[Rfam]
mir-544 microRNA precursor family: a 95-nucleotide RNA sequence from Papio anubis. On this family, see Chiang et al., Genes Dev 2010: "Mammalian microRNAs: experimental evaluation of novel and previously annotated genes". The family's consensus secondary structure was predicted with RNAalifold.
RNA sequence: GUCACCUAGGGGAGUCUUAUUAAAAUGCAGAUUUUAAUACAGUCUGAGGUACCCCUGAGAUUCUGCAUUUCUAAUAAGCUCCCAGGCGAUGCUAA
Numbered sequence: 001g002u003c004a005c006c007u008a009g010g011g012g013a014g015u016c017u018u019a020u021u022a023a024a025a026u027g028c029a030g031a032u033u034u035u036a037a038u039a040c041a042g043u044c045u046g047a048g049g050u051a052c053c054c055c056u057g058a059g060a061u062u063c064u065g066c067a068u069u070u071c072u073a074a075u076a077a078g079c080u081c082c083c084a085g086g087c088g089a090u091g092c093u094a095a
Base pairs, nucleotide, nucleotide: 003088005086009082010081011080016078017077018076019075020074021073022072023070024069025068027066028065029064030063031062033060034059035058